This 115-nucleotide RNA sequence from Amycolatopsis sp. YIM 10 belongs to the Rfam family "SAM (S-adenosyl methionine) riboswitch aptamer". Rfam describes the family as follows. SAM-IV is a mRNA element that regulates gene expression via direct sensing of S-adenosylmethionine (SAM or AdoMet). SAM-IV riboswitches share conserved nucleotide positions with the previously described SAM-I riboswitches sequence analysis and molecular recognition experiments suggest that SAM-I and SAM-IV riboswitches share similar ligand binding sites, but have different scaffolds. The family's consensus secondary structure is taken from published work.

RNA sequence: GGUCAUGAGUGCCAGCGUCAAGCCCCGGCUAGCUGGCCGGCAACCCUCCAACCGCGGUGGGGUGCCCCGGGUGAGGACCUGGCUCGUCACGAGGUGUGGCGGGCAAGCGCGGAUC
Dot-bracket structure: ((((....(.((((((....((......)).)))))))(((..(((.((......))..))).))).........))))..((((((((((...))))))))))...........